[Rfam]
RNA sequence: AACUGAUCUGUUCAUCAGCAGAUCAGCAGUAGCAGAUCAGCUGCUGAACAGAUCAGAAAAUGAUAUGUUCAGCAGCUGAUCUGCUGCUGCUGAUCUGCAGCUGAACAGAUCAGUUUCUGAUCUGU
Number, nucleotide and partner (000 for none) at each position: 001a000002a000003c000004u000005g000006a000007u000008c000009u060010g000011u058012u057013c056014a000015u104016c103017a102018g101019c100020a000021g000022a096023u000024c000025a091026g090027c089028a088029g087030u000031a085032g084033c083034a082035g081036a080037u079038c078039a077040g076041c075042u074043g073044c072045u000046g000047a069048a068049c067050a066051g000052a000053u000054c000055a000056g013057a012058a011059a000060a009061u000062g000063a000064u000065a000066u050067g049068u048069u047070c000071a000072g044073c043074a042075g041076c040077u039078g038079a037080u036081c035082u034083g033084c032085u031086g000087c029088u028089g027090c026091u025092g000093a000094u000095c000096u022097g000098c000099a000100g019101c018102u017103g016104a015105a125106c124107a123108g122109a121110u120111c119112a118113g117114u000115u000116u000117c113118u112119g111120a110121u109122c108123u107124g106125u105
Notes: The family of this 125-nucleotide RNA from Spinacia oleracea is "Interferon gamma 5' UTR regulatory element". Rfam describes the family as follows. This family represents a pseudoknot containing stem-loop structure found in the 5' UTR of interferon (IFN) gamma mRNA. This structure is thought to be involved in translational regulation and the pseudoknot has been found to activate PKR which is known to be a translational inhibitor. Mutations in the pseudoknot structure have been found to reduce PKR activation and increase the translation of IFN-gamma. Rfam links the family to the GO term positive regulation of translation. The literature on the family includes a 2002 paper in Cell by Ben-Asouli et al., "Human interferon-gamma mRNA autoregulates its translation through a pseudoknot that activates the interferon-inducible protein kinase PKR".